Overview:
The family of this 76-nucleotide RNA sequence from Furnarius figulus is "Small nucleolar RNA SNORD47". Its family is annotated with nucleolus and RNA processing in the Gene Ontology. Rfam 15.1 lists 755 matches to the family in 638 species. By type it is a C/D-box small nucleolar RNA. A search with the family's covariance model found it, with a score of 62 bits. Lineage of the source: Eukaryota > Opisthokonta > Gnathostomata > Aves > Furnarius.
RNA sequence: AGCCACUGAUGAAAUUGAUUCUGCCAGAUGAGUUCCUGUGAUUUUACCCUUCCCGUUCCAUUUUUGUGCUGAGGUU
Numbered sequence: 001a002g003c004c005a006c007u008g009a010u011g012a013a014a015u016u017g018a019u020u021c022u023g024c025c026a027g028a029u030g031a032g033u034u035c036c037u038g039u040g041a042u043u044u045u046a047c048c049c050u051u052c053c054c055g056u057u058c059c060a061u062u063u064u065u066g067u068g069c070u071g072a073g074g075u076u
Base pairs, nucleotide, nucleotide: 001076002075003074004073